[Rfam]
RNA sequence: UUCUCCUGGUAUCCACUGUAGGCCUAUAUGUAUUUUGAUCAUAAGGCACGCGGUGAAUGCCAAGAGCG
Numbered sequence: 001u002u003c004u005c006c007u008g009g010u011a012u013c014c015a016c017u018g019u020a021g022g023c024c025u026a027u028a029u030g031u032a033u034u035u036u037g038a039u040c041a042u043a044a045g046g047c048a049c050g051c052g053g054u055g056a057a058u059g060c061c062a063a064g065a066g067c068g
Base pairs, nucleotide, nucleotide: 003066004065005064009060010059011058012057014055015054016053018051019050023046024045025044027043028042029041030040
Rfam assigns this 68-nucleotide RNA sequence from Lucilia cuprina to the family "mir-124 microRNA precursor family". The literature on the family includes a 2003 paper in Genes Dev by Lim et al., "The microRNAs of Caenorhabditis elegans". The family has 122 seed sequences and 2,215 matches in Rfam 15.1. Rfam links the family to the GO terms miRNA-mediated post-transcriptional gene silencing and RISC complex. Taxonomically the source falls in Lucilia (Eukaryota, Opisthokonta, Hexapoda, Schizophora).